A member of the RNA family "Bacterial large subunit ribosomal RNA" from Leptospira interrogans, 233 nucleotides of a longer RNA. The base pairs follow the family's consensus structure, which is taken from published work. The family is grouped with related families in Rfam's "LSU clan". It is one of the family's seed sequences.
RNA sequence: GAGUUAUUUUACGUUGCAAGCUUAAGGCAGUGAGAUGCCGUAGGCGAAGCGAAAGCGAGUCUGAAUAGGGCGUUAAAGUAGCGUGGAAUAGACCCGAAGCCUGUCGAGCUAUCCAUGUCCAGGUUGAAGGUGGGGUAAAACUCACUGGAGGACCGAACCCUUUUUCGUUGAAAAGAAUUGGGAUGAGGUGUGGAUAGGGGUGAAAGGCCUAUCAAGGCAGGCGAUAGCUGGUU
Number, nucleotide and partner (000 for none) at each position: 001g000002a000003g000004u000005u090006a089007u088008u087009u086010u085011a084012c083013g082014u081015u080016g079017c078018a000019a000020g045021c044022u043023u042024a000025a000026g039027g038028c037029a000030g000031u000032g000033a000034g000035a000036u000037g028038c027039c026040g000041u000042a023043g022044g021045c020046g000047a000048a000049g056050c055051g000052a000053a000054a000055g050056c049057g000058a000059g071060u070061c069062u068063g000064a000065a000066u000067a000068g062069g061070g060071c059072g000073u000074u000075a000076a000077a000078g017079u016080a015081g014082c013083g012084u011085g010086g009087a008088a007089u006090a005091g000092a000093c231094c230095c000096g228097a000098a000099g000100c221101c220102u219103g218104u217105c216106g000107a000108g000109c197110u196111a195112u194113c193114c192115a191116u190117g189118u188119c187120c185121a000122g154123g153124u152125u151126g000127a000128a000129g146130g145131u144132g143133g142134g141135g000136u000137a000138a000139a000140a000141c134142u133143c132144a131145c130146u129147g000148g000149a000150g000151g125152a124153c123154c122155g000156a000157a000158c182159c181160c180161u000162u000163u000164u177165u176166c175167g000168u000169u000170g000171a000172a000173a000174a000175g166176a165177a164178u000179u000180g160181g159182g158183a000184u000185g120186a000187g119188g118189u117190g116191u115192g114193g113194a112195u111196a110197g109198g000199g209200g208201u207202g000203a000204a000205a000206g000207g201208c200209c199210u000211a000212u000213c000214a000215a000216g105217g104218c103219a102220g101221g100222c000223g000224a000225u000226a000227g000228c096229u000230g094231g093232u000233u000